The record is a 175-nucleotide sequence from Aromatoleum aromaticum, which matches "Manganese Mn2+ riboswitch aptamer (yybP-ykoY)" in Rfam. Lineage of the source: Bacteria > Pseudomonadati > Betaproteobacteria > Rhodocyclales > Aromatoleum aromaticum.
RNA sequence: CGCGCCGUCAUCAGGGAGUAGCCGCCUGCGAGCCUUCGCAGGGACCACGUCAACAGACUUGCGCGUCGCGCAUGGCGUGGCCAGCCUUCGGGCCUGGCGAGACUUUUGGCUGCAUGCCCUCCGAUUUUUCGGGCCCGGGAGGCGUGCGGUCAUCGGUCAUCAGCCGGCCCGGAGA
Numbered sequence: 001c002g003c004g005c006c007g008u009c010a011u012c013a014g015g016g017a018g019u020a021g022c023c024g025c026c027u028g029c030g031a032g033c034c035u036u037c038g039c040a041g042g043g044a045c046c047a048c049g050u051c052a053a054c055a056g057a058c059u060u061g062c063g064c065g066u067c068g069c070g071c072a073u074g075g076c077g078u079g080g081c082c083a084g085c086c087u088u089c090g091g092g093c094c095u096g097g098c099g100a101g102a103c104u105u106u107u108g109g110c111u112g113c114a115u116g117c118c119c120u121c122c123g124a125u126u127u128u129u130c131g132g133g134c135c136c137g138g139g140a141g142g143c144g145u146g147c148g149g150u151c152a153u154c155g156g157u158c159a160u161c162a163g164c165c166g167g168c169c170c171g172g173a174g175a
Stems, first nucleotide, its partner, number of pairs: 026041003043082001045080008060072005087174003